[Rfam]
RNA sequence: UGUCCCCGUCUAACACCAGUACCUUCUGAGGCAGUGUAGUGCUCUGGCUUUAAGGGGAUAGAGUACCGGGCUUUCUUCCCUCCUCAGUGGAUGCUUGCGUUCCACCUGAGGCCUAAAGAGAAGCCAACAUG
Numbered sequence: 001u002g003u004c005c006c007c008g009u010c011u012a013a014c015a016c017c018a019g020u021a022c023c024u025u026c027u028g029a030g031g032c033a034g035u036g037u038a039g040u041g042c043u044c045u046g047g048c049u050u051u052a053a054g055g056g057g058a059u060a061g062a063g064u065a066c067c068g069g070g071c072u073u074u075c076u077u078c079c080c081u082c083c084u085c086a087g088u089g090g091a092u093g094c095u096u097g098c099g100u101u102c103c104a105c106c107u108g109a110g111g112c113c114u115a116a117a118g119a120g121a122a123g124c125c126a127a128c129a130u131g
Base pairs, nucleotide, nucleotide: 003058004057005056006055007054009052016047017046018045019044023039024038026036069125070124071123073121074120082111083110084109085108086107087106088104089103090102091101
Dot-bracket structure: ..(((((.(......((((...((.(.........).))....))))....).)))))..........(((.((.......((((((((((.........)))).))))))........)).)))......